[Rfam]
RNA sequence: CUAACGAAACAGGGGUGCUACACCGACUGGUGAGGCUGAGAAAUACCCUUUGAACCCGAUCAAGGUAAUACUUGCGAGGCGAAGUUUUUGUUGAUAGUGG
Numbered sequence: 001c002u003a004a005c006g007a008a009a010c011a012g013g014g015g016u017g018c019u020a021c022a023c024c025g026a027c028u029g030g031u032g033a034g035g036c037u038g039a040g041a042a043a044u045a046c047c048c049u050u051u052g053a054a055c056c057c058g059a060u061c062a063a064g065g066u067a068a069u070a071c072u073u074g075c076g077a078g079g080c081g082a083a084g085u086u087u088u089u090g091u092u093g094a095u096a097g098u099g100g
Stems, first nucleotide, its partner, number of pairs: 006088005011049004016043001017036003021032003055081001056079002061074004
The record is a 100-nucleotide RNA from Pelistega europaea, which matches "TPP riboswitch aptamer (THI element)" in Rfam.
Its family is annotated with thiamine pyrophosphate binding in the Gene Ontology.
Lineage of the source: Bacteria > Pseudomonadati > Pseudomonadota > Betaproteobacteria > Pelistega.
The match comes from Rfam's covariance-model search (59 bits).
Vitamin B(1) in its active form thiamin pyrophosphate (TPP) is an essential coenzyme that is synthesised by coupling of pyrimidine and thiazole moieties in bacteria.